[Rfam]
Background: Small nucleolar RNA SNORA3/SNORA45 family: a 132-nucleotide sequence from Phrynocephalus forsythii. The family has 6 seed sequences and 2,080 matches in Rfam 15.1. About the family: The members of this family belong to the H/ACA class of snoRNAs which are thought to guide the sites of modification of uridines to pseudouridines. This family includes mouse snoMBI-28 and human homologues ACA3 (SNORA3) and ACA3-2 (SNORA45). Both ACA3 and ACA3-2 share the same host gene. MBI-28, ACA3 and ACA3-2 are all predicted to guide the pseudouridylation of residues in 28S rRNA. The family's consensus secondary structure was predicted with RNAalifold. The family is grouped with related families in Rfam's "SNORA3 clan". For this family Rfam cites "A novel experimental approach for systematic identification of box H/ACA snoRNAs from eukaryotes" (Gu et al., Nucleic Acids Res, 2005). Rfam classes the family as an H/ACA-box small nucleolar RNA. The match comes from Rfam's covariance-model search (104 bits).
Nucleotides: 132
Stems, first nucleotide, its partner, number of pairs: 003058004007053003012048002015046005023038001025036002070124007083113004089107006
Number, partner (000 for none) and nucleotide at each position: 001000a002000c003058c004057g005056a006055g007053a008052c009051u010000a011000g012048a013047g014000u015046c016045a017044c018043a019042c020000a021000u022000a023038g024000a025036u026035g027000u028000c029000u030000u031000c032000a033000g034000u035026c036025a037000c038023c039000a040000u041000g042019g043018u044017g045016u046015g047013c048012u049000a050000u051009a052008g053007u054000c055006c056005u057004c058003g059000a060000a061000g062000a063000g064000a065000a066000a067000c068000a069000a070124c071123u072122a073121a074120c075119c076118u077000u078000u079000a080000u081000u082000c083113a084112c085111u086110g087000a088000c089107u090106g091105u092104g093103u094102u095000g096000c097000u098000c099000a100000g101000u102094a103093g104092c105091a106090c107089a108000g109000c110086c111085a112084g113083u114000c115000a116000c117000c118076a119075g120074g121073u122072u123071a124070g125000u126000u127000a128000c129000a130000u131000u132000c